The family of this 487-nucleotide part of an RNA from Dendroctonus ponderosae is "Eukaryotic large subunit ribosomal RNA".
RNA sequence: CCCUCCGAAGUUUCCCUCAGGAUAGCUGGAGUUAAAAAAGUUGCACCAGGUAAAGCGAAUGAUUAGAGGCCUCGGGGGCAUGGUGCCCUCGACCUAUUCUCAAACUCUGAAUGGGUGCGAAUCACUAAUUGCUUAAUCGAAUUAGUGAGGUCAAUUAUAACUCUAAGUGGGCCAUUUUUGGUAAGCAGAACUGGCGAUGAGGGAUGCUCCUAACGUUGAGAUAAGGUGCUUAAAUCUCGCUCAUCAGACACCAUAAAAGGUGUUAGUUCAUUUAGACAGCAGGACGGUGGUCAUGGAAGUAGAAAUCCGCUAAGGAGUGUGUAACAACUCACCUGCCGAAUGAACCAGCCCUGAAAAUGGAUAGCGCUCAAGCGAGGUACCGAUACUCAACCAUUGCGACAAGUCUGUUUCGCAAUGAGUAGGAGGGCGUGGGGGUUGUUUAGAAGUGUCGAGCGUGAGCUUGCAUGGAACGGCUCCCAGUGUAGAU
Numbered sequence: 001c002c003c004u005c006c007g008a009a010g011u012u013u014c015c016c017u018c019a020g021g022a023u024a025g026c027u028g029g030a031g032u033u034a035a036a037a038a039a040g041u042u043g044c045a046c047c048a049g050g051u052a053a054a055g056c057g058a059a060u061g062a063u064u065a066g067a068g069g070c071c072u073c074g075g076g077g078g079c080a081u082g083g084u085g086c087c088c089u090c091g092a093c094c095u096a097u098u099c100u101c102a103a104a105c106u107c108u109g110a111a112u113g114g115g116u117g118c119g120a121a122u123c124a125c126u127a128a129u130u131g132c133u134u135a136a137u138c139g140a141a142u143u144a145g146u147g148a149g150g151u152c153a154a155u156u157a158u159a160a161c162u163c164u165a166a167g168u169g170g171g172c173c174a175u176u177u178u179u180g181g182u183a184a185g186c187a188g189a190a191c192u193g194g195c196g197a198u199g200a201g202g203g204a205u206g207c208u209c210c211u212a213a214c215g216u217u218g219a220g221a222u223a224a225g226g227u228g229c230u231u232a233a234a235u236c237u238c239g240c241u242c243a244u245c246a247g248a249c250a251c252c253a254u255a256a257a258a259g260g261u262g263u264u265a266g267u268u269c270a271u272u273u274a275g276a277c278a279g280c281a282g283g284a285c286g287g288u289g290g291u292c293a294u295g296g297a298a299g300u301a302g303a304a305a306u307c308c309g310c311u312a313a314g315g316a317g318u319g320u321g322u323a324a325c326a327a328c329u330c331a332c333c334u335g336c337c338g339a340a341u342g343a344a345c346c347a348g349c350c351c352u353g354a355a356a357a358u359g360g361a362u363a364g365c366g367c368u369c370a371a372g373c374g375a376g377g378u379a380c381c382g383a384u385a386c387u388c389a390a391c392c393a394u395u396g397c398g399a400c401a402a403g404u405c406u407g408u409u410u411c412g413c414a415a416u417g418a419g420u421a422g423g424a425g426g427g428c429g430u431g432g433g434g435g436u437u438g439u440u441u442a443g444a445a446g447u448g449u450c451g452a453g454c455g456u457g458a459g460c461u462u463g464c465a466u467g468g469a470a471c472g473g474c475u476c477c478c479a480g481u482g483u484a485g486a487u
Stems, first nucleotide, its partner, number of pairs: 001427006011024001013022003027165007041120007053108001054106002060102003065097001067095003072092006079085001122148009171195004176190005200211003215391005225381003234378001236377001238374003258352003262349003266345006279336005285309003291303002310314001315330001319328002392417008428482001430479010446466002452461003
The base pairs follow the family's consensus structure, which is taken from published work.